[Rfam]
Nucleotides: 115
Base pairs, nucleotide, nucleotide: 005111006110007109008108009107010106017029018028019027031095032094033085034084035048036047037046038045043083044082051061052060053059065081066080067079068078069077087098088097089096
Number, partner (000 for none) and nucleotide at each position: 001000u002000a003000c004000a005111a006110u007109c008108u009107u010106c011000a012000g013000g014000g015000c016000g017029g018028g019027g020000u021000g022000a023000a024000a025000u026000u027019c028018c029017c030000c031095a032094c033085u034084g035048g036047c037046g038045g039000u040000a041000u042000a043083g044082c045038c046037c047036g048035c049000g050000a051061a052060c053059c054000a055000u056000a057000a058000u059053g060052g061051u062000u063000g064000a065081u066080u067079c068078g069077g070000u071000g072000a073000a074000a075000c076000u077069c078068c079067g080066a081065g082044g083043c084034c085033a086000a087098c088097a089096g090000u091000a092000c093000a094032g095031u096089c097088u098087g099000g100000a101000u102000g103000a104000a105000a106010g107009a108008a109007g110006a111005u112000a113000a114000u115000g